This 119-nucleotide RNA from Sorghum bicolor belongs to the Rfam family "mir-393 microRNA precursor family". The literature on the family includes a 2012 paper in J Plant Physiol by Kruszka et al., "Role of microRNAs and other sRNAs of plants in their changing environments". The match comes from Rfam's covariance-model search (61 bits).
RNA sequence: AGAGGAAGCCUCCAAAAGGAUCGCAUGAUCCGUCGGGAACGAAGUCCUUGUAGACGACGACCACCCAUGAUAGAAUGGAAGGAGUGACGGAUCAAUGCGAUCCCUUUGGAUGCUUCCUC
Numbered sequence: 001a002g003a004g005g006a007a008g009c010c011u012c013c014a015a016a017a018g019g020a021u022c023g024c025a026u027g028a029u030c031c032g033u034c035g036g037g038a039a040c041g042a043a044g045u046c047c048u049u050g051u052a053g054a055c056g057a058c059g060a061c062c063a064c065c066c067a068u069g070a071u072a073g074a075a076u077g078g079a080a081g082g083a084g085u086g087a088c089g090g091a092u093c094a095a096u097g098c099g100a101u102c103c104c105u106u107u108g109g110a111u112g113c114u115u116c117c118u119c
Stems, first nucleotide, its partner, number of pairs: 002119005008113002011110006018103004023098003026094010